This 33-nucleotide RNA from Darwinula stevensoni belongs to the Rfam family "DUF805b RNA".
It is annotated as a cis-regulatory element.
Nucleotides: 033
Base pairs, nucleotide, nucleotide: 003020004019005018010032011031012030
Number, partner (000 for none) and nucleotide at each position: 001000a002000c003020c004019a005018g006000g007000g008000u009000a010032g011031c012030c013000g014000a015000a016000a017000a018005c019004u020003g021000a022000a023000c024000a025000g026000a027000g028000u029000a030012g031011g032010c033000a